A member of the RNA family "Actino-pnp RNA" from Tessaracoccus bendigoensis, 63 nucleotides long. A search with the family's covariance model found it, with a score of 64 bits.

[Rfam]
RNA sequence: UCUGGUCCUCGGUAGUGGUCCUCGGGUGCAACGCGCCCCCGCGGACCUCGAUCGAAGACCGGC
Numbered sequence: 001u002c003u004g005g006u007c008c009u010c011g012g013u014a015g016u017g018g019u020c021c022u023c024g025g026g027u028g029c030a031a032c033g034c035g036c037c038c039c040c041g042c043g044g045a046c047c048u049c050g051a052u053c054g055a056a057g058a059c060c061g062g063c
Base pairs, nucleotide, nucleotide: 002062003061004060005059006058007057009055010054011053012052013051017047018046019045020044021043023041024040025039026038028036029035